[Rfam]
RNA sequence: GGUUCGGGAGCGGCCCUUCGGGACGGGCACGCAUGAAUGGAACCUUCCCCCUGAUCGCAUUCGGUGUGCGCCUGUGGCCCGACAGGCUGCGCG
Dot-bracket structure: (((((....(((((((........)))).))).......)))))....................((((((((((........))))).)))))
RNA: Rhodo-rpoB RNA
Organism: Gemmobacter aquatilis